A member of the RNA family "Bacterial large subunit ribosomal RNA" from Brachyspira murdochii, 351 nucleotides of a longer RNA. The family's consensus secondary structure is taken from published work. Taxonomically the source falls in Brachyspira murdochii (Bacteria, Brachyspirales, Brachyspiraceae, Brachyspira).

RNA sequence: CGAGAUAAUCUUCCCUAAGGAACUCUGCAAAUUAGUCUUGUAACUUCGGAAAAAGAGACGCUUGAAUCUUGGUAGCAAUAUUGAGAGGAGAGUCGCAGUGAAAAGGCCUGGCCGACUGUUUAGCAAAAACACAGAUCUCUGCAAACAUGUAAAUGGAUGUAUAGGGAUUGACACCUGCCCAGUGCUGGAAGGUUAAAAGGAGAGGUUAGCGUAAGCGAAGCUUCGAAUUGAAGCCCCAGUAAACGGCGGCCGUAACUAUGACGGUCCUAAGGUAGCGAAAUUCCUUGUCGGGUAAGUUCCGACCUGCACGAAUGGUGUAACGAUCCGGGCACUGUCUCGGGGAAGAACUCG
Numbered sequence: 001c002g003a004g005a006u007a008a009u010c011u012u013c014c015c016u017a018a019g020g021a022a023c024u025c026u027g028c029a030a031a032u033u034a035g036u037c038u039u040g041u042a043a044c045u046u047c048g049g050a051a052a053a054a055g056a057g058a059c060g061c062u063u064g065a066a067u068c069u070u071g072g073u074a075g076c077a078a079u080a081u082u083g084a085g086a087g088g089a090g091a092g093u094c095g096c097a098g099u100g101a102a103a104a105g106g107c108c109u110g111g112c113c114g115a116c117u118g119u120u121u122a123g124c125a126a127a128a129a130c131a132c133a134g135a136u137c138u139c140u141g142c143a144a145a146c147a148u149g150u151a152a153a154u155g156g157a158u159g160u161a162u163a164g165g166g167a168u169u170g171a172c173a174c175c176u177g178c179c180c181a182g183u184g185c186u187g188g189a190a191g192g193u194u195a196a197a198a199g200g201a202g203a204g205g206u207u208a209g210c211g212u213a214a215g216c217g218a219a220g221c222u223u224c225g226a227a228u229u230g231a232a233g234c235c236c237c238a239g240u241a242a243a244c245g246g247c248g249g250c251c252g253u254a255a256c257u258a259u260g261a262c263g264g265u266c267c268u269a270a271g272g273u274a275g276c277g278a279a280a281u282u283c284c285u286u287g288u289c290g291g292g293u294a295a296g297u298u299c300c301g302a303c304c305u306g307c308a309c310g311a312a313u314g315g316u317g318u319a320a321c322g323a324u325c326c327g328g329g330c331a332c333u334g335u336c337u338c339g340g341g342g343a344a345g346a347a348c349u350c351g
Stems, first nucleotide, its partner, number of pairs: 001351004009346008018337003035059005044049001060093004069084006094098001106330006113322002117131003134169008142159001146155003172317004177247003182244002184240005191235003197229002202224005209216002248266006267271001277304001287303006